RNA sequence: GAAGCAAGCCAGACCGUCGCUGGUGCAAGCAUGGAAACAUGGCACUGGAGGAAGGUCCGGACUGCAUAGAGCAGCGUAGCAGCUAACGGCUGCCCACCGCGAGGUGAGGAUUAGAGCAACAGAGACGAGCCGGUUAAGUCCGGGUGAAACGGGCAAUCUCUACGCGCAGCAACACCAAGUAGGCCAGCGUUGAUGCGGCUCGCAGAGCUGGCGGGUAGGUGGCACCGAGCCGGGCAGUGAUGUCCGGCCAAGAGGAAUGACGGUCACGCACCCGGCUUCGCAAGAGGCCGGGCGUGCACAGAAUCCGGCCUAUCGGCUUGCUUCACAC
Numbered sequence: 001g002a003a004g005c006a007a008g009c010c011a012g013a014c015c016g017u018c019g020c021u022g023g024u025g026c027a028a029g030c031a032u033g034g035a036a037a038c039a040u041g042g043c044a045c046u047g048g049a050g051g052a053a054g055g056u057c058c059g060g061a062c063u064g065c066a067u068a069g070a071g072c073a074g075c076g077u078a079g080c081a082g083c084u085a086a087c088g089g090c091u092g093c094c095c096a097c098c099g100c101g102a103g104g105u106g107a108g109g110a111u112u113a114g115a116g117c118a119a120c121a122g123a124g125a126c127g128a129g130c131c132g133g134u135u136a137a138g139u140c141c142g143g144g145u146g147a148a149a150c151g152g153g154c155a156a157u158c159u160c161u162a163c164g165c166g167c168a169g170c171a172a173c174a175c176c177a178a179g180u181a182g183g184c185c186a187g188c189g190u191u192g193a194u195g196c197g198g199c200u201c202g203c204a205g206a207g208c209u210g211g212c213g214g215g216u217a218g219g220u221g222g223c224a225c226c227g228a229g230c231c232g233g234g235c236a237g238u239g240a241u242g243u244c245c246g247g248c249c250a251a252g253a254g255g256a257a258u259g260a261c262g263g264u265c266a267c268g269c270a271c272c273c274g275g276c277u278u279c280g281c282a283a284g285a286g287g288c289c290g291g292g293c294g295u296g297c298a299c300a301g302a303a304u305c306c307g308g309c310c311u312a313u314c315g316g317c318u319u320g321c322u323u324c325a326c327a328c
Base pairs, nucleotide, nucleotide: 001324002323003322004321005320006319007318008317009316010315011313012265013264014263015262016261017260018259020048021047022046023045024044025043026042028040053311054310055309057308058307059306060305061304062169063168064167065166069201070200071199072198074165075164076163077162078161079093080092081091082090083089094108095106096105097104098103109160110159114158115157116154117153130143131142132141133140173221174220175219176218183212184211185210186209187208188207194204195203196202229248230247231246232245233244234243235242236241
Dot-bracket structure: ((((((((((((((((((.(((((((.(...........).)))))))....[[[.[[[[[((((...[[[[.((((((((((.....)))))(((((....)))).)((...((((............((((......)))).........))..)))))))))))))...((((......((((((.....(((.]]]])))..)))))).....)))).......((((((((....))))))))..........)))))))......................................]]]]]]]].).))))))))))....